A member of the RNA family "Vault RNA" from Nothobranchius furzeri, 99 nucleotides long. The family's consensus secondary structure is taken from published work. A search with the family's covariance model found it, with a score of 67 bits. A reference for the family is Stadler et al. (2009), "Evolution of Vault RNAs", Mol Biol Evol. The family's RNA type in Rfam is non-coding RNA gene.
RNA sequence: GUGUCGGGUUAGCUCAGUGGUUACUUCCAAAUAAAGAUCGGUACUCUUGCCCACCUCGUCUCGGCGGGGUUCGAACCACGGGCGCUGUCCGAUGCUUUU
Numbered sequence: 001g002u003g004u005c006g007g008g009u010u011a012g013c014u015c016a017g018u019g020g021u022u023a024c025u026u027c028c029a030a031a032u033a034a035a036g037a038u039c040g041g042u043a044c045u046c047u048u049g050c051c052c053a054c055c056u057c058g059u060c061u062c063g064g065c066g067g068g069g070u071u072c073g074a075a076c077c078a079c080g081g082g083c084g085c086u087g088u089c090c091g092a093u094g095c096u097u098u099u
Stems, first nucleotide, its partner, number of pairs: 002094006012083004017079004025075003029071001